[Rfam]
The record is a 93-nucleotide RNA from Thermincola carboxydiphila, which matches "Selenocysteine transfer RNA" in Rfam. The family's consensus secondary structure is taken from published work. It scores 75 bits against the family's covariance model.
RNA sequence: GGGAGCGGAUUUGGCCUGGUGGCUUGCCCGGACUUCAAAUCCGUUGGCGGGCAGUGAUCCUGUCCGCGGUGGGUUCGAUUCCCACACGCUCCC
Numbered sequence: 001g002g003g004a005g006c007g008g009a010u011u012u013g014g015c016c017u018g019g020u021g022g023c024u025u026g027c028c029c030g031g032a033c034u035u036c037a038a039a040u041c042c043g044u045u046g047g048c049g050g051g052c053a054g055u056g057a058u059c060c061u062g063u064c065c066g067c068g069g070u071g072g073g074u075u076c077g078a079u080u081c082c083c084a085c086a087c088g089c090u091c092c093c
Stems, first nucleotide, its partner, number of pairs: 001093007008085001011026001013024004029043004047067005070084004